[Rfam]
RNA sequence: GAAGAAAACACGGGGAGCUUGUGUACCAGGCUGAGAGGAAGUUGAGAACUUCGACCCAUAACCUGAUUUGGAUAAUGCCAACGUAGGAAUGUAUAAAGCAGUACUU
Dot-bracket structure: .....(.(((.(((..(((((.....)))))......(((((.....)))))..)))....((((..((((......))))..))))..))).)............
Numbered sequence: 001g002a003a004g005a006a007a008a009c010a011c012g013g014g015g016a017g018c019u020u021g022u023g024u025a026c027c028a029g030g031c032u033g034a035g036a037g038g039a040a041g042u043u044g045a046g047a048a049c050u051u052c053g054a055c056c057c058a059u060a061a062c063c064u065g066a067u068u069u070g071g072a073u074a075a076u077g078c079c080a081a082c083g084u085a086g087g088a089a090u091g092u093a094u095a096a097a098g099c100a101g102u103a104c105u106u
Stems, first nucleotide, its partner, number of pairs: 006094001008092003012057003017031005038052005062087004068081004
The family of this 106-nucleotide RNA sequence from Mediterraneibacter sp. gm002 is "TPP riboswitch aptamer (THI element)".
The family has 115 seed sequences and 16,130 matches in Rfam 15.1.
Lineage of the source: Bacteria > Bacillati > Bacillota > Lachnospiraceae > Mediterraneibacter.
Pairs were carried over by alignment from the consensus structure, which is taken from published work.